[Rfam]
RNA sequence: GACGCGGGCCGGGCCCCUCUGGCGAUCGCCUGAAGCGGUUGCGAUGUCGGACCGCAUCG
Numbered sequence: 001g002a003c004g005c006g007g008g009c010c011g012g013g014c015c016c017c018u019c020u021g022g023c024g025a026u027c028g029c030c031u032g033a034a035g036c037g038g039u040u041g042c043g044a045u046g047u048c049g050g051a052c053c054g055c056a057u058c059g
Base pairs, nucleotide, nucleotide: 006053007052009050010049011048012047022042023041024040025039026038027037028036029035
The record is a 59-nucleotide RNA from Sphingobium fluviale, which matches "terC RNA" in Rfam. Taxonomically the source falls in Sphingobium (Bacteria, Pseudomonadati, Pseudomonadota, Sphingobiaceae).